[Rfam]
Nucleotides: 103
Stems, first nucleotide, its partner, number of pairs: 001103001003101002006099001057074002
Number, partner (000 for none) and nucleotide at each position: 001103a002000g003101a004100u005000a006099g007000u008000g009000u010000u011000g012000a013000g014000g015000a016000c017000a018000u019000c020000u021000u022000g023000c024000c025000a026000a027000c028000a029000a030000a031000u032000c033000u034000u035000u036000a037000a038000a039000a040000c041000g042000c043000u044000c045000c046000c047000a048000a049000g050000c051000c052000u053000g054000a055000u056000a057074g058073a059000g060000a061000g062000u063000u064000u065000c066000a067000u068000c069000g070000g071000g072000c073058u074057c075000u076000u077000g078000c079000u080000u081000g082000a083000a084000a085000c086000u087000g088000u089000u090000g091000a092000u093000g094000g095000c096000c097000u098000c099006c100004a101003u102000c103001u
The family of this 103-nucleotide RNA from Artemisia annua is "Plant small nucleolar RNA R71".
Rfam classes the family as a C/D-box small nucleolar RNA.
The base pairs follow the family's consensus structure, which was predicted with PFOLD.
Rfam links the family to the GO terms RNA processing and nucleolus.
The family has 25 seed sequences and 278,378 matches in Rfam 15.1.